[Rfam]
RNA sequence: GUGGGCGUAGCUCAGUUGGUAGAGCACUGGAUUGUGGCUCCAGAGGUCGCGGGUUCAAUCCCCGUCGCUCACC
Number, nucleotide and partner (000 for none) at each position: 001g072002u071003g070004g069005g068006c067007g066008u000009a000010g025011c024012u023013c022014a000015g000016u000017u000018g000019g000020u000021a000022g013023a012024g011025c010026a000027c043028u042029g041030g040031a039032u000033u000034g000035u000036g000037g000038c000039u031040c030041c029042a028043g027044a000045g000046g000047u000048c000049g065050c064051g063052g062053g061054u000055u000056c000057a000058a000059u000060c000061c053062c052063c051064g050065u049066c007067g006068c005069u004070c003071a002072c001073c000
RNA: tRNA